RNA sequence: GCGAUGAGCUAAUUUGUGUAAGUCGAUAGACAAGCCCUCGGGUUAAACGUUUGGAUGUGGCCGAACGGUUUAUCGCCUCAAAACGCAUCAAAGACGUCUGCUGUGUGCAGGCGUC
Numbered sequence: 001g002c003g004a005u006g007a008g009c010u011a012a013u014u015u016g017u018g019u020a021a022g023u024c025g026a027u028a029g030a031c032a033a034g035c036c037c038u039c040g041g042g043u044u045a046a047a048c049g050u051u052u053g054g055a056u057g058u059g060g061c062c063g064a065a066c067g068g069u070u071u072a073u074c075g076c077c078u079c080a081a082a083a084c085g086c087a088u089c090a091a092a093g094a095c096g097u098c099u100g101c102u103g104u105g106u107g108c109a110g111g112c113g114u115c
Stems, first nucleotide, its partner, number of pairs: 014081003018077001024075008034043002048067002051064003093115009
A member of the RNA family "BsrF" from Peribacillus saganii, 115 nucleotides long.
The source organism's lineage runs through Bacteria, Bacillati, Bacillota, Bacilli and Peribacillus.
Pairs were carried over by alignment from the consensus structure, which was predicted with WAR.